[Rfam]
RNA sequence: UCAAUCCUUGUCUAGGAGAGCAUAAUGUCCAAUGAUCGUCUAGUGAGGGCAUUGGUGCUAACACCCUAGUUAAAUUUUCGCAUCCUGCUGUAUAGUAGAAUGCAAUUUUUGUAACC
Numbered sequence: 001u002c003a004a005u006c007c008u009u010g011u012c013u014a015g016g017a018g019a020g021c022a023u024a025a026u027g028u029c030c031a032a033u034g035a036u037c038g039u040c041u042a043g044u045g046a047g048g049g050c051a052u053u054g055g056u057g058c059u060a061a062c063a064c065c066c067u068a069g070u071u072a073a074a075u076u077u078u079c080g081c082a083u084c085c086u087g088c089u090g091u092a093u094a095g096u097a098g099a100a101u102g103c104a105a106u107u108u109u110u111g112u113a114a115c116c
Stems, first nucleotide, its partner, number of pairs: 005019002008016002020058004024053007037043001080103004085098005
RNA: U4atac minor spliceosomal RNA